[Rfam]
RNA sequence: GGGUGCUUGAGGCUAUCUGUCUCAGGCAUUAGCUGAACGGCAGAUAGAGAAAAGCCCCGAGUGAUAUUUUACUAUCAACCCGAGGCCCCCUAUAUGCUGAACACAUGUAGAGUGCCUCUUACUGACCGUAAGGUCAAGGAGAAGAGAGCAAUG
Numbered sequence: 001g002g003g004u005g006c007u008u009g010a011g012g013c014u015a016u017c018u019g020u021c022u023c024a025g026g027c028a029u030u031a032g033c034u035g036a037a038c039g040g041c042a043g044a045u046a047g048a049g050a051a052a053a054g055c056c057c058c059g060a061g062u063g064a065u066a067u068u069u070u071a072c073u074a075u076c077a078a079c080c081c082g083a084g085g086c087c088c089c090c091u092a093u094a095u096g097c098u099g100a101a102c103a104c105a106u107g108u109a110g111a112g113u114g115c116c117u118c119u120u121a122c123u124g125a126c127c128g129u130a131a132g133g134u135c136a137a138g139g140a141g142a143a144g145a146g147a148g149c150a151a152u153g
Stems, first nucleotide, its partner, number of pairs: 001058003005055004013047009026034001059081001061079002063076004082118005090110007123144001126141001